[Rfam]
RNA sequence: GGGAUGUGAUGAGAGCAGGGUGCCUGAAGAAUGGCUCCUCUGUGUAUAACACAUCCAACAGGAAUGUAGGUUUACUCCUCACAGGUGGCAAGAUACUAUGACCUCCCUGUGACAUUACAACCUAUACAU
Numbered sequence: 001g002g003g004a005u006g007u008g009a010u011g012a013g014a015g016c017a018g019g020g021u022g023c024c025u026g027a028a029g030a031a032u033g034g035c036u037c038c039u040c041u042g043u044g045u046a047u048a049a050c051a052c053a054u055c056c057a058a059c060a061g062g063a064a065u066g067u068a069g070g071u072u073u074a075c076u077c078c079u080c081a082c083a084g085g086u087g088g089c090a091a092g093a094u095a096c097u098a099u100g101a102c103c104u105c106c107c108u109g110u111g112a113c114a115u116u117a118c119a120a121c122c123u124a125u126a127c128a129u
Stems, first nucleotide, its partner, number of pairs: 002056007013045001015043006022035003069122004082111002085104001087102001089100002091097002
RNA: Small nucleolar RNA SNORA11
Organism: Molossus molossus